[Rfam]
RNA sequence: GACGAAUCUAUUGGCUGCCGAGCCGCGCGGUUACCGCCGCGCGGGGAGGGCACCGAAAAGAGGAGUUC
Number, nucleotide and partner (000 for none) at each position: 001g000002a000003c000004g000005a000006a000007u000008c000009u000010a000011u056012u055013g054014g000015c000016u052017g051018c050019c049020g000021a000022g000023c044024c043025g042026c041027g040028c039029g038030g037031u036032u000033a000034c000035c000036g031037c030038c029039g028040c027041g026042c025043g024044g023045g000046g000047a000048g000049g019050g018051c017052a016053c000054c013055g012056a011057a000058a000059a000060g000061a000062g000063g000064a000065g000066u000067u000068c000

A member of the RNA family "ilvH RNA" from Variovorax sp., 68 nucleotides long. NCBI's taxonomy places the organism under Bacteria, Pseudomonadati, Burkholderiales, Comamonadaceae, Variovorax.